[Rfam]
RNA sequence: UUUUUGGUUUCUCGCAAUAGCGUUCGGUUUACUUGGUCAGGUUCGGAAGAAAGCAGCCAGAAUUGAAAUGUUUAUGUGCCGAGUUUUGCUGGAAACGC
Numbered sequence: 001u002u003u004u005u006g007g008u009u010u011c012u013c014g015c016a017a018u019a020g021c022g023u024u025c026g027g028u029u030u031a032c033u034u035g036g037u038c039a040g041g042u043u044c045g046g047a048a049g050a051a052a053g054c055a056g057c058c059a060g061a062a063u064u065g066a067a068a069u070g071u072u073u074a075u076g077u078g079c080c081g082a083g084u085u086u087u088g089c090u091g092g093a094a095a096c097g098c
Stems, first nucleotide, its partner, number of pairs: 004092005011083004015076001017075004023067007033060005042051003
A member of the RNA family "Bacterial small signal recognition particle RNA" from Muribacter muris, 98 nucleotides long. The family's RNA type in Rfam is non-coding RNA gene. From the family's description: The signal recognition particle (SRP) is a universally conserved ribonucleoprotein involved in the co-translational targeting of proteins to membranes. Gene Ontology terms of the family: signal recognition particle, plasma membrane targeting and SRP-dependent cotranslational protein targeting to membrane, signal sequence recognition. The base pairs follow the family's consensus structure, which is taken from published work.